[Rfam]
RNA sequence: AUAAUCCUUGUCUGGGGGAGCAAUAUGUCCAGUGAGCGUAAGUGAGGGCAUAGCUGCUGAAACCAAAAAAAUAUUUACACCCGCGCUCCUCUCUGACGAAGUUCGGAGAGUCGGGCGCAAUUUUUGUAAGU
Numbered sequence: 001a002u003a004a005u006c007c008u009u010g011u012c013u014g015g016g017g018g019a020g021c022a023a024u025a026u027g028u029c030c031a032g033u034g035a036g037c038g039u040a041a042g043u044g045a046g047g048g049c050a051u052a053g054c055u056g057c058u059g060a061a062a063c064c065a066a067a068a069a070a071a072u073a074u075u076u077a078c079a080c081c082c083g084c085g086c087u088c089c090u091c092u093c094u095g096a097c098g099a100a101g102u103u104c105g106g107a108g109a110g111u112c113g114g115g116c117g118c119a120a121u122u123u124u125u126g127u128a129a130g131u
Stems, first nucleotide, its partner, number of pairs: 005019005020057003024052007036043002083118006091108006